[Rfam]
Annotation
Shown here is a 56-nucleotide RNA from Pristionchus pacificus, a member of the family "mir-8286 microRNA precursor family". Gene Ontology terms of the family: miRNA-mediated post-transcriptional gene silencing and RISC complex. It is one of the family's seed sequences.

RNA sequence: ACCGCACCAUGCUCUAUCCAUCUCGAAUUGAGUGAGUUGGCAAGAACUUUGGCACG
Numbered sequence: 001a002c003c004g005c006a007c008c009a010u011g012c013u014c015u016a017u018c019c020a021u022c023u024c025g026a027a028u029u030g031a032g033u034g035a036g037u038u039g040g041c042a043a044g045a046a047c048u049u050u051g052g053c054a055c056g
Stems, first nucleotide, its partner, number of pairs: 003056002007052003011047001013045003018040003022036004